[Rfam]
RNA sequence: CGCGUCUUUCGCCCAGGCGGAGAUCGGCCGCCGAUUCAGGCUCUGAAGGCCUUCGUCGAUCUACAUCGCGACAGCUUGGGGGUCGAUCCGAUCUGCAAGGUCUUGCGGAUUGCCCCG
Numbered sequence: 001c002g003c004g005u006c007u008u009u010c011g012c013c014c015a016g017g018c019g020g021a022g023a024u025c026g027g028c029c030g031c032c033g034a035u036u037c038a039g040g041c042u043c044u045g046a047a048g049g050c051c052u053u054c055g056u057c058g059a060u061c062u063a064c065a066u067c068g069c070g071a072c073a074g075c076u077u078g079g080g081g082g083u084c085g086a087u088c089c090g091a092u093c094u095g096c097a098a099g100g101u102c103u104u105g106c107g108g109a110u111u112g113c114c115c116c117g
Base pairs, nucleotide, nucleotide: 016032017031018030019029020028079116080115081114082113089112090111092109093108094107095106096105097104098103
RNA: ALIL pseudoknot